[Rfam]
RNA sequence: AGUGCUAGAGAACUUAAUGGAAUAAGCAGACUGGACUGGGGGGCAGUACCGCACAUCUCCACCAAUUAUAUAUUAUACUUAAUUGUAUAUAUUUAUUUAUCUUAUUUGGGGAUGAAACAGGAUCGACAGAUGUAGUAAAGAUUUGUGUUUGCACUCGGCGAGUUACCACUGAUAUCGGUACAAACUUUAAAUAUAAAUGCUAACGAUAAUCGUUUUGCUCCAGUGGCUGUUGCUGCCUAG
Numbered sequence: 001a002g003u004g005c006u007a008g009a010g011a012a013c014u015u016a017a018u019g020g021a022a023u024a025a026g027c028a029g030a031c032u033g034g035a036c037u038g039g040g041g042g043g044c045a046g047u048a049c050c051g052c053a054c055a056u057c058u059c060c061a062c063c064a065a066u067u068a069u070a071u072a073u074u075a076u077a078c079u080u081a082a083u084u085g086u087a088u089a090u091a092u093u094u095a096u097u098u099a100u101c102u103u104a105u106u107u108g109g110g111g112a113u114g115a116a117a118c119a120g121g122a123u124c125g126a127c128a129g130a131u132g133u134a135g136u137a138a139a140g141a142u143u144u145g146u147g148u149u150u151g152c153a154c155u156c157g158g159c160g161a162g163u164u165a166c167c168a169c170u171g172a173u174a175u176c177g178g179u180a181c182a183a184a185c186u187u188u189a190a191a192u193a194u195a196a197a198u199g200c201u202a203a204c205g206a207u208a209a210u211c212g213u214u215u216u217g218c219u220c221c222a223g224u225g226g227c228u229g230u231u232g233c234u235g236c237c238u239a240g
Stems, first nucleotide, its partner, number of pairs: 001155005016143003027132002031129003037053002040050002054114007156171003
The record is a 240-nucleotide RNA from Rhodospirillaceae bacterium NM2, which matches "permuted transfer-messenger RNA" in Rfam. Rfam describes the family as follows. Bacterial tmRNA, also known as 10Sa RNA or SsrA, is named for its dual tRNA and mRNA-like properties. Its role is to liberate the mRNA from a stalled ribosome. To accomplish this part of the tmRNA is used as a reading frame that ends in a translation stop signal. The broken mRNA is replaced in the ribosome by the tmRNA and translation of the tmRNA leads to addition of a proteolysis tag to the incomplete protein enabling recognition by a protease. Recently a number of permuted tmRNA genes have been found encoded in two parts. tmRNAs have been identified in eubacteria and some chloroplasts but are absent from archaeal and eukaryote nuclear genomes. Rfam classes the family as a non-coding RNA gene. On this family, see Williams and Bartel, RNA 1996: "Phylogenetic analysis of tmRNA secondary structure". The source organism's lineage runs through Bacteria, Pseudomonadati, Pseudomonadota, Alphaproteobacteria and Rickettsiaceae.